Shown here is a 49-nucleotide RNA, a member of the family "DUF3800-XI RNA". About the family: Actinobacteria, Firmicutes, Proteobacteria, Spirochaetes (1 example). Rfam's curators put it in the seed alignment.
RNA sequence: UGGACUGGCCGAAAGGCCCUGGUCCACCGAAACGGCGUGGGGAUCCCGC
Numbered sequence: 001u002g003g004a005c006u007g008g009c010c011g012a013a014a015g016g017c018c019c020u021g022g023u024c025c026a027c028c029g030a031a032a033c034g035g036c037g038u039g040g041g042g043a044u045c046c047c048g049c
Stems, first nucleotide, its partner, number of pairs: 001026006007018004
Dot-bracket structure: ((((((((((....))))..)))))).......................